[Rfam]
RNA: Streptomyces-metK RNA
Organism: Streptomyces sp. AS58
RNA sequence: GCGAGACAGUGACCCGGCGGCAAAGCGCGACCGAUAAACUGUUCUCGGACGAUGCCAGGCGCAGCCCCCGGCCCGUCCACCAAUGAUCAGCCAGCAGCCGCUGCAACCCCAGGGAG
Number, nucleotide and partner (000 for none) at each position: 001g000002c000003g000004a000005g000006a000007c000008a000009g000010u000011g000012a000013c000014c000015c000016g000017g000018c000019g000020g000021c000022a000023a000024a000025g000026c000027g000028c000029g000030a000031c000032c000033g000034a000035u000036a000037a000038a000039c000040u000041g000042u000043u000044c000045u000046c000047g078048g077049a076050c075051g074052a000053u000054g000055c071056c070057a000058g068059g067060c000061g000062c000063a000064g000065c000066c000067c059068c058069c000070g056071g055072c000073c000074c051075g050076u049077c048078c047079a000080c000081c000082a000083a000084u000085g000086a000087u000088c000089a000090g000091c000092c103093a102094g101095c100096a000097g000098c000099c000100g095101c094102u093103g092104c000105a000106a000107c000108c000109c000110c000111a000112g000113g000114g000115a000116g000